Rfam assigns this 537-nucleotide part of an RNA from Mycena chlorophos to the family "Eukaryotic large subunit ribosomal RNA".

Nucleotides: 537
Base pairs, nucleotide, nucleotide: 001533002532003531004530005529006528007527008525009524012026013025014024029065030064031063032062033061034060035059036058040052041051042050043049069519070518071517073127074126075125078124079123080120081119082118083117085116088115089114090113096107097106098105099104128469129468130467132465133464470474490506491505492504493503494502
Number, partner (000 for none) and nucleotide at each position: 001533g002532g003531g004530a005529a006528u007527c008525u009524g010000a011000c012026u013025g014024u015000c016000u017000a018000a019000u020000u021000a022000a023000a024014a025013c026012a027000u028000a029065g030064c031063a032062u033061u034060g035059c036058g037000a038000u039000g040052g041051c042050c043049a044000g045000a046000a047000a048000g049043u050042g051041g052040u053000g054000u055000u056000g057000a058036c059035g060034c061033a062032a063031u064030g065029u066000g067000a068000u069519u070518u071517c072000u073127g074126c075125c076000c077000a078124g079123u080120g081119c082118u083117c084000u085116g086000a087000a088115u089114g090113u091000c092000a093000a094000a095000g096107u097106g098105a099104a100000g101000a102000a103000a104099u105098u106097c107096a108000a109000c110000c111000a112000a113090g114089c115088g116085c117083g118082g119081g120080u121000a122000a123079a124078c125075g126074g127073c128469g129468g130467g131000a132465g133464u134000a135000a136000c137000u138000a139000u140000g141000a142000c143000u144000c145000g146000a147000a148000a149000c150000c151000u152000u153000a154000a155000c156000g157000a158000g159000g160000g161000u162000c163000a164000u165000u166000a167000g168000a169000g170000c171000a172000u173000c174000g175000u176000u177000a178000a179000a180000a181000g182000c183000g184000u185000u186000u187000g188000c189000u190000a191000g192000u193000u194000c195000g196000u197000a198000u199000c200000u201000a202000a203000u204000g205000g206000a207000u208000a209000u210000g211000g212000g213000c214000g215000a216000c217000a218000c219000u220000g221000u222000c223000a224000a225000a226000u227000u228000g229000c230000g231000g232000g233000a234000a235000c236000a237000c238000c239000c240000u241000a242000a243000a244000g245000c246000u247000u248000u249000g250000a251000g252000u253000a254000c255000c256000g257000c258000c259000u260000c261000u262000a263000c264000a265000u266000g267000g268000a269000a270000a271000c272000a273000u274000a275000g276000u277000a278000g279000c280000a281000g282000u283000g284000c285000a286000c287000c288000a289000g290000g291000g292000u293000a294000a295000u296000g297000a298000c299000c300000u301000c302000g303000g304000g305000u306000a307000u308000g309000g310000u311000a312000a313000a314000a315000a316000c317000c318000u319000c320000a321000a322000a323000g324000a325000u326000a327000u328000u329000u330000a331000g332000c333000a334000a335000u336000g337000g338000g339000c340000a341000a342000u343000c344000c345000g346000c347000a348000g349000c350000g351000a352000a353000g354000u355000c356000c357000u358000a359000a360000g361000g362000g363000u364000g365000a366000a367000a368000a369000c370000c371000u372000a373000u374000g375000g376000a377000a378000c379000g380000c381000g382000u383000u384000c385000a386000a387000c388000g389000a390000c391000u392000a393000g394000a395000a396000g397000g398000c399000a400000g401000u402000g403000g404000g405000u406000c407000c408000c409000u410000a411000c412000u413000a414000c415000g416000g417000g418000g419000g420000g421000c422000u423000u424000a425000a426000g427000a428000u429000a430000u431000a432000g433000u434000c435000u436000a437000c438000u439000c440000c441000c442000a443000g444000u445000a446000c447000g448000a449000a450000a451000g452000u453000a454000c455000g456000g457000g458000u459000u460000c461000a462000a463000a464133g465132u466000g467130c468129u469128c470474u471000u472000a473000a474470g475000g476000u477000a478000g479000c480000c481000a482000a483000a484000u485000g486000c487000c488000u489000c490506g491505u492504c493503a494502u495000c496000u497000a498000a499000u500000u501000a502494g503493u504492g505491a506490c507000g508000c509000g510000c511000a512000u513000g514000a515000a516000u517071g518070g519069a520000u521000u522000a523000a524009c525008g526000a527007g528006a529005u530004u531003c532002c533001c534000a535000c536000u537000g